The record is a 127-nucleotide RNA sequence, which matches "Small nucleolar RNA snoR111" in Rfam. Rfam links the family to the GO terms nucleolus and RNA processing. It is annotated as an H/ACA-box small nucleolar RNA. The family's consensus secondary structure was predicted with WAR. A search with the family's covariance model found it, with a score of 82 bits.
RNA sequence: UAAUUGAUGAAUGGGACGGUGACUCAAUCCCGUCUCGUCUGAGGGCGAGAGGCAUAGCGAUGCCGGCGAGAUAUCGUUUCAGUCGUUAUUUUUCUCCAUUGGCGAUCUGAUUGUUGCUCCUCCACAU
Numbered sequence: 001u002a003a004u005u006g007a008u009g010a011a012u013g014g015g016a017c018g019g020u021g022a023c024u025c026a027a028u029c030c031c032g033u034c035u036c037g038u039c040u041g042a043g044g045g046c047g048a049g050a051g052g053c054a055u056a057g058c059g060a061u062g063c064c065g066g067c068g069a070g071a072u073a074u075c076g077u078u079u080c081a082g083u084c085g086u087u088a089u090u091u092u093u094c095u096c097c098a099u100u101g102g103c104g105a106u107c108u109g110a111u112u113g114u115u116g117c118u119c120c121u122c123c124a125c126a127u
Base pairs, nucleotide, nucleotide: 006039007038008037009036010035013031014030015029016028065123066122068119069118070117073111074110075109076108082106083105084104085103086102087101088100090098